A member of the RNA family "Molybdenum/Tungsten riboswitch aptamer (Moco RNA motif)" from Sporomusa malonica, 111 nucleotides long. Rfam 15.1 lists 1,248 matches to the family in 836 species. The base pairs follow the family's consensus structure, which is taken from published work. Gene Ontology terms of the family: molybdenum ion binding, tungstate binding and regulation of gene expression. Taxonomically the source falls in Sporomusa (Bacteria, Bacillota, Selenomonadales, Sporomusaceae). It scores 43 bits against the family's covariance model.
RNA sequence: AGAGAAUAUUGCUUCCGAUUUAUUAUCAUCCCUACUGGGAGAUAAUAAACCUUAGGGUAUGAUGAGUAAUUAUCGUGCCUGCCAUUGUGCAAAGGAAGAGGUACUAAAAUU
Numbered sequence: 001a002g003a004g005a006a007u008a009u010u011g012c013u014u015c016c017g018a019u020u021u022a023u024u025a026u027c028a029u030c031c032c033u034a035c036u037g038g039g040a041g042a043u044a045a046u047a048a049a050c051c052u053u054a055g056g057g058u059a060u061g062a063u064g065a066g067u068a069a070u071u072a073u074c075g076u077g078c079c080u081g082c083c084a085u086u087g088u089g090c091a092a093a094g095g096a097a098g099a100g101g102u103a104c105u106a107a108a109a110u111u
Base pairs, nucleotide, nucleotide: 003105004104006102012098013097014096015095016094019049020048021047022046023045024044025043026042027041029040030039031038032037055080056079057078058077059076060075061074062073063072064071065070081090082089